[Rfam]
Rfam assigns this 61-nucleotide RNA from Microcebus murinus to the family "U7 small nuclear RNA". Lineage of the source: Eukaryota > Metazoa > Bilateria > Eutheria > Microcebus. The family's consensus secondary structure was predicted with PFOLD. The match comes from Rfam's covariance-model search (45 bits).

RNA sequence: CAGUGUUACAACUCUUAUGAGAUUGUCUAUCAGGUUUUCCAGUACUCACUGGAAGACCCUU
Number, nucleotide and partner (000 for none) at each position: 001c000002a000003g000004u000005g000006u000007u000008a000009c000010a000011a000012c000013u000014c000015u000016u000017a000018u000019g000020a000021g000022a000023u000024u000025g000026u000027c000028u000029a000030u000031c000032a000033g058034g057035u056036u055037u054038u053039c052040c051041a050042g049043u048044a000045c000046u000047c000048a043049c042050u041051g040052g039053a038054a037055g036056a035057c034058c033059c000060u000061u000